This 150-nucleotide RNA sequence from Granulicella rosea belongs to the Rfam family "Group II catalytic intron D1-D4-7". Rfam links the family to the GO term Group II intron splicing. A search with the family's covariance model found it, with a score of 108 bits. Lineage of the source: Bacteria > Pseudomonadati > Acidobacteriota > Acidobacteriaceae > Granulicella. A reference for the family is Chu et al. (2001), "Control of branch-site choice by a group II intron", EMBO J. The base pairs follow the family's consensus structure.
RNA sequence: CCUGCGGUUCCGUCCGCAGUAGCCUAUCGACAUCGGAGUAGCUGGUAACGGCUGGGUCGAAAGCUGUCGAGACAACGAUCCUCUGUCUUCCGACAAGGAGAACUCCGUGAGGCGUUCUCUGCCACUGCCAGCGUCAAGGCGGUGGGAGGG
Numbered sequence: 001c002c003u004g005c006g007g008u009u010c011c012g013u014c015c016g017c018a019g020u021a022g023c024c025u026a027u028c029g030a031c032a033u034c035g036g037a038g039u040a041g042c043u044g045g046u047a048a049c050g051g052c053u054g055g056g057u058c059g060a061a062a063g064c065u066g067u068c069g070a071g072a073c074a075a076c077g078a079u080c081c082u083c084u085g086u087c088u089u090c091c092g093a094c095a096a097g098g099a100g101a102a103c104u105c106c107g108u109g110a111g112g113c114g115u116u117c118u119c120u121g122c123c124a125c126u127g128c129c130a131g132c133g134u135c136a137a138g139g140c141g142g143u144g145g146g147a148g149g150g
Stems, first nucleotide, its partner, number of pairs: 002019006028069005033060004039054006082097001084095004098119004105112002124143006